[Rfam]
RNA sequence: AUCACAAGGGGAUCUUGUUAAAAUGAAGACUCUGAUUCAGUAGGUCUGGGGUGGGGCCUGAGACUCUGCAUUUCUAACAAGCUCCCAGGUGAGGCAGA
Numbered sequence: 001a002u003c004a005c006a007a008g009g010g011g012a013u014c015u016u017g018u019u020a021a022a023a024u025g026a027a028g029a030c031u032c033u034g035a036u037u038c039a040g041u042a043g044g045u046c047u048g049g050g051g052u053g054g055g056g057c058c059u060g061a062g063a064c065u066c067u068g069c070a071u072u073u074c075u076a077a078c079a080a081g082c083u084c085c086c087a088g089g090u091g092a093g094g095c096a097g098a
Stems, first nucleotide, its partner, number of pairs: 003091003009085003014081007021073003025069001027067003031063003